[Rfam]
RNA sequence: AUUCCAUCCCGAGCGGCUGAGAGACCUGGCUCGUUGACGCCGCAGCAACCACCCAUCGUGGGCAGGUGCUACCGCCAGGAACGAUGGAGG
Numbered sequence: 001a002u003u004c005c006a007u008c009c010c011g012a013g014c015g016g017c018u019g020a021g022a023g024a025c026c027u028g029g030c031u032c033g034u035u036g037a038c039g040c041c042g043c044a045g046c047a048a049c050c051a052c053c054c055a056u057c058g059u060g061g062g063c064a065g066g067u068g069c070u071a072c073c074g075c076c077a078g079g080a081a082c083g084a085u086g087g088a089g090g
Stems, first nucleotide, its partner, number of pairs: 002089007013043005021032003026078004044070004049066002052062003074082001